[Rfam]
RNA sequence: CACGUCAGUGCGAGUUGCUGAUGUGGCAACAAAUCGCGCCCUCUAGGACACGAUCUGCUGCCACGUCAGCAACUUGCGCUGACGUGG
Number, nucleotide and partner (000 for none) at each position: 001c086002a085003c084004g083005u082006c081007a080008g079009u078010g077011c076012g075013a074014g073015u072016u071017g070018c069019u068020g067021a066022u000023g064024u063025g062026g061027c060028a059029a000030c057031a056032a000033a054034u053035c052036g051037c000038g049039c000040c047041c046042u000043c000044u000045a000046g041047g040048a000049c038050a000051c036052g035053a034054u033055c000056u031057g030058c000059u028060g027061c026062c025063a024064c023065g000066u021067c020068a019069g018070c017071a016072a015073c014074u013075u012076g011077c010078g009079c008080u007081g006082a005083c004084g003085u002086g001087g000

The record is an 87-nucleotide sequence from Gossypium aridum, which matches "MIR7486 microRNA precursor family" in Rfam. Taxonomically the source falls in Gossypium (Eukaryota, Tracheophyta, Magnoliopsida, Malvoideae). It scores 86 bits against the family's covariance model. Gene Ontology terms of the family: RISC complex and miRNA-mediated post-transcriptional gene silencing. Pairs were carried over by alignment from the consensus structure, which was predicted with RNAalifold.